[Rfam]
RNA sequence: GGUCUGUGAUGGGCAGUGAAAGGUCUCAUCAUCUGAUGGGUGCUCAUCGCUGGCCCUGGCUCCCAGCAGGCUCUCCCCGGUGCUGCCGCAGCGGUGCUGGGCCUGGCAGAGUGCUUGCUGACGGCCUGUGCUGUGUCCAGCUCGUGUCGACCUCAAGUGCUGGAGACGUGGCUGUAGUCCACGUCCUGCAGUCCCACCUGAAGGAGUUUGGGGUCUUGGACUGGUACAUCUGGACACGUGAUCUGACUUUUGUGCUGAGGCC
Numbered sequence: 001g002g003u004c005u006g007u008g009a010u011g012g013g014c015a016g017u018g019a020a021a022g023g024u025c026u027c028a029u030c031a032u033c034u035g036a037u038g039g040g041u042g043c044u045c046a047u048c049g050c051u052g053g054c055c056c057u058g059g060c061u062c063c064c065a066g067c068a069g070g071c072u073c074u075c076c077c078c079g080g081u082g083c084u085g086c087c088g089c090a091g092c093g094g095u096g097c098u099g100g101g102c103c104u105g106g107c108a109g110a111g112u113g114c115u116u117g118c119u120g121a122c123g124g125c126c127u128g129u130g131c132u133g134u135g136u137c138c139a140g141c142u143c144g145u146g147u148c149g150a151c152c153u154c155a156a157g158u159g160c161u162g163g164a165g166a167c168g169u170g171g172c173u174g175u176a177g178u179c180c181a182c183g184u185c186c187u188g189c190a191g192u193c194c195c196a197c198c199u200g201a202a203g204g205a206g207u208u209u210g211g212g213g214u215c216u217u218g219g220a221c222u223g224g225u226a227c228a229u230c231u232g233g234a235c236a237c238g239u240g241a242u243c244u245g246a247c248u249u250u251u252g253u254g255c256u257g258a259g260g261c262c
Stems, first nucleotide, its partner, number of pairs: 001262004033245001035243003044219003049214001060206004064120007077106004083100003086096001128186001130185001132183004144172002148168002152165001153163002
Source information: Rfam assigns this 262-nucleotide RNA from Crypturellus soui to the family "Small Cajal body specific RNA 6". Rfam classes the family as a small Cajal body RNA. The family has 17 seed sequences and 1,309 matches in Rfam 15.1. The match comes from Rfam's covariance-model search (79 bits).